[Rfam]
About this RNA: A member of the RNA family "SAM riboswitch aptamer (S box leader)" from Halobacillus sp. BBL2006, 110 nucleotides long. A search with the family's covariance model found it, with a score of 93 bits. Rfam describes the family as follows. The SAM riboswitch is found upstream of a number of genes which code for proteins involved in methionine or cysteine biosynthesis in Gram-positive bacteria. NCBI's taxonomy places the organism under Bacteria, Bacillati, Bacillota, Caryophanales, Halobacillus.
Nucleotides: 110
Base pairs, nucleotide, nucleotide: 001110002109003108004107005106006105007104008103013041015040016039017038021031022030023029025083027081028080042075043074044073045072047071048070049067051065052064053063054062079102084099085098086097088095089094
Number, partner (000 for none) and nucleotide at each position: 001110c002109u003108c004107u005106u006105a007104u008103c009000c010000a011000g012000a013041g014000u015040g016039g017038c018000g019000g020000a021031g022030g023029g024000a025083c026000u027081g028080g029023c030022c031021c032000g033000a034000u035000g036000a037000u038017g039016c040015c041013c042075g043074g044073c045072a046000a047071c048070c049067a050000a051065c052064a053063a054062g055000u056000u057000u058000u059000u060000a061000a062054c063053u064052u065051g066000a067049u068000a069000a070048g071047g072045u073044g074043c075042c076000a077000a078000u079102u080028c081027c082000u083025g084099c085098a086097g087000a088095g089094c090000a091000a092000a093000a094089g095088c096000c097086c098085u099084g100000a101000u102079a103008g104007a105006u106005g107004a108003g109002a110001g